[Rfam]
RNA: Pyrrolysine insertion sequence 1
RNA sequence: UAGGGCCCGGAGACUUCCCUGUCUGCUCAGGGAAAUAUAUCCUCUGACUGCGUUGGCGGCCAGAUCUCUUCGGAUAGCCACGAAGUCUCCCAGCUCAACG
Numbered sequence: 001u002a003g004g005g006c007c008c009g010g011a012g013a014c015u016u017c018c019c020u021g022u023c024u025g026c027u028c029a030g031g032g033a034a035a036u037a038u039a040u041c042c043u044c045u046g047a048c049u050g051c052g053u054u055g056g057c058g059g060c061c062a063g064a065u066c067u068c069u070u071c072g073g074a075u076a077g078c079c080a081c082g083a084a085g086u087c088u089c090c091c092a093g094c095u096c097a098a099c100g
Stems, first nucleotide, its partner, number of pairs: 010089008041059002044056003